The record is a 123-nucleotide RNA sequence from Aliivibrio fischeri, which matches "Histidine operon leader" in Rfam.
RNA sequence: UCAUCACCACCAUCAUCCUGAUUAGUCUUUCGGGAGGAUACGUAUUAUCCGGAAGGCAAUUUGAAUUUCCUUCCGAUGAAUAAAAAUUCUAACCCUCGGAAGGUCAAACUUCUGAGGGUUUUU
Numbered sequence: 001u002c003a004u005c006a007c008c009a010c011c012a013u014c015a016u017c018c019u020g021a022u023u024a025g026u027c028u029u030u031c032g033g034g035a036g037g038a039u040a041c042g043u044a045u046u047a048u049c050c051g052g053a054a055g056g057c058a059a060u061u062u063g064a065a066u067u068u069c070c071u072u073c074c075g076a077u078g079a080a081u082a083a084a085a086a087u088u089c090u091a092a093c094c095c096u097c098g099g100a101a102g103g104u105c106a107a108a109c110u111u112c113u114g115a116g117g118g119u120u121u122u123u
Stems, first nucleotide, its partner, number of pairs: 009043002012039003017034005045076002051074006091120012
About the family: At least 6 amino acid operons are known to be regulated by attenuation. In each a leader sequence of 150-200 bp is found upstream of the first gene in the operon. NCBI's taxonomy places the organism under Bacteria, Pseudomonadati, Vibrionales, Vibrionaceae, Aliivibrio fischeri. It is one of the family's seed sequences. The family's consensus secondary structure is taken from published work.